[Rfam]
Nucleotides: 145
Stems, first nucleotide, its partner, number of pairs: 012129003018032003033125006043052001053110003061086007089104004
Number, partner (000 for none) and nucleotide at each position: 001000g002000a003000c004000a005000u006000u007000g008000a009000c010000a011000g012129g013128c014127c015000g016000a017000a018032u019031c020030c021000g022000c023000a024000c025000a026000g027000c028000g029000c030020g031019g032018a033125a034124c035123c036122g037121g038120g039000g040000a041000c042000c043052c044000a045000c046000c047000u048000u049000u050000c051000c052043g053110g054109g055108g056000u057000g058000a059000a060000u061086c062085g063084c064083a065082c066081g067080c068000c069000g070000g071000c072000c073000g074000a075000c076000g077000g078000c079000c080067g081066c082065g083064u084063g085062c086061g087000u088000a089104g090103g091102g092101c093000a094000c095000u096000u097000c098000c099000a100000c101092g102091u103090c104089c105000g106000a107000a108055c109054c110053c111000g112000u113000c114000a115000g116000c117000u118000a119000a120038c121037c122036c123035g124034g125033u126000a127014g128013g129012c130000a131000c132000a133000u134000g135000g136000a137000a138000g139000c140000a141000a142000g143000g144000a145000g